This 89-nucleotide sequence from Roseobacter insulae belongs to the Rfam family "Glycine riboswitch aptamer". The base pairs follow the family's consensus structure. The source organism's lineage runs through Bacteria, Alphaproteobacteria, Rhodobacterales, Roseobacteraceae and Roseobacter. It scores 62 bits against the family's covariance model.
[Rfam]
RNA sequence: ACUUCCCGCCCGGGAGAACCGGCUGAAAUGCCGGUGCCGAAGGAGCAACCGCCCCGGAAACUCUCAGGCCACCGGACCGUGCGGGAGGA
Number, nucleotide and partner (000 for none) at each position: 001a000002c000003u000004u000005c000006c084007c083008g082009c081010c000011c079012g078013g077014g000015a000016g000017a000018a000019c034020c033021g032022g031023c000024u000025g000026a000027a000028a000029u000030g000031c022032c021033g020034g019035u000036g069037c068038c067039g065040a064041a000042g000043g063044a062045g061046c000047a000048a000049c057050c056051g000052c000053c000054c000055c000056g050057g049058a000059a000060a000061c045062u044063c043064u040065c039066a000067g038068g037069c036070c000071a000072c000073c000074g000075g000076a000077c013078c012079g011080u000081g009082c008083g007084g006085g000086a000087g000088g000089a000

This family represents the bacterial glycine riboswitch.